[Rfam]
RNA sequence: CCACUAUCAAAUCCUAUCUCCACCUCCACGUGGUGACCGCUGGGAGCUCUUUUUUAACGAAAAGCUGCAGACGGAGAAGG
Numbered sequence: 001c002c003a004c005u006a007u008c009a010a011a012u013c014c015u016a017u018c019u020c021c022a023c024c025u026c027c028a029c030g031u032g033g034u035g036a037c038c039g040c041u042g043g044g045a046g047c048u049c050u051u052u053u054u055u056a057a058c059g060a061a062a063a064g065c066u067g068c069a070g071a072c073g074g075a076g077a078a079g080g
Stems, first nucleotide, its partner, number of pairs: 013080003017076001019074002022034003045066004050061002053059001